RNA: Alphaproteobacterial ar14
RNA sequence: UCAUUGUGCAGCCGAUCACCUCCUCCCGAUCGGCCGCGGCGACCAGCGGCACUCCUCCUCCCAGCCGCCUGGUCAUUAAUCAGAGCUCGGUGCACCUCCUCCCGCACCGGGCUCUUUUU
Numbered sequence: 001u002c003a004u005u006g007u008g009c010a011g012c013c014g015a016u017c018a019c020c021u022c023c024u025c026c027c028g029a030u031c032g033g034c035c036g037c038g039g040c041g042a043c044c045a046g047c048g049g050c051a052c053u054c055c056u057c058c059u060c061c062c063a064g065c066c067g068c069c070u071g072g073u074c075a076u077u078a079a080u081c082a083g084a085g086c087u088c089g090g091u092g093c094a095c096c097u098c099c100u101c102c103c104g105c106a107c108c109g110g111g112c113u114c115u116u117u118u119u
Base pairs, nucleotide, nucleotide: 007038008037009036011034012033013032014031015030016029017028041074042073043072044071045070046068047067048066049065050064083114084113085112086111087110088109089108090107091106092105093104